The record is a 136-nucleotide sequence from Balaenoptera musculus, which matches "Small nucleolar RNA SNORA70" in Rfam. On this family, see Charette and Gray, IUBMB Life 2000: "Pseudouridine in RNA: what, where, how, and why". The match comes from Rfam's covariance-model search (114 bits). snoRNA U70 seems to be exclusive to mammals and is a member of the H/ACA class of snoRNA which contain H (ANANNA) and ACA box motifs. H/ACA box snoRNAs are involved in the conversion of uridines to pseudouridines (5-ribosyluracil) a constituent of structural RNAs (transfer, ribosomal, small nuclear, and small nucleolar). It is annotated as an H/ACA-box small nucleolar RNA. Taxonomically the source falls in Balaenoptera (Eukaryota, Deuterostomia, Mammalia, Theria). The family's consensus secondary structure was predicted with PFOLD.
RNA sequence: UUGCAGCCAAUUAAGCCAACCAUGGUCUUUUCCCCGUGAGGGGCCCAGCAUGCAAUGGCUGCAGACAGCAGCCUCCUCAGUAGUGUGUGCAGCCUGUUGCCUGUACAGGAUGCCCUAAGGGACCUUGGAGACAGCC
Numbered sequence: 001u002u003g004c005a006g007c008c009a010a011u012u013a014a015g016c017c018a019a020c021c022a023u024g025g026u027c028u029u030u031u032c033c034c035c036g037u038g039a040g041g042g043g044c045c046c047a048g049c050a051u052g053c054a055a056u057g058g059c060u061g062c063a064g065a066c067a068g069c070a071g072c073c074u075c076c077u078c079a080g081u082a083g084u085g086u087g088u089g090c091a092g093c094c095u096g097u098u099g100c101c102u103g104u105a106c107a108g109g110a111u112g113c114c115c116u117a118a119g120g121g122a123c124c125u126u127g128g129a130g131a132c133a134g135c136c
Stems, first nucleotide, its partner, number of pairs: 002054004020048001026041003080123002090112002093109003